[Rfam]
RNA: c-di-GMP-I riboswitch aptamer
Organism: Shewanella loihica
RNA sequence: CUCUCGAAACGGCAAGCAUUAAGUAAUUAAUGUACGCAAAGCCACAGGCCCUAAUUGCAUAGCAAAAGGGUGGCUGGGUUACCGAA
Numbered sequence: 001c002u003c004u005c006g007a008a009a010c011g012g013c014a015a016g017c018a019u020u021a022a023g024u025a026a027u028u029a030a031u032g033u034a035c036g037c038a039a040a041g042c043c044a045c046a047g048g049c050c051c052u053a054a055u056u057g058c059a060u061a062g063c064a065a066a067a068g069g070g071u072g073g074c075u076g077g078g079u080u081a082c083c084g085a086a
Base pairs, nucleotide, nucleotide: 012037013036017032018031019030020029021028022027040080041079042078043077045076046075047074048071049070050069055065056064057063058062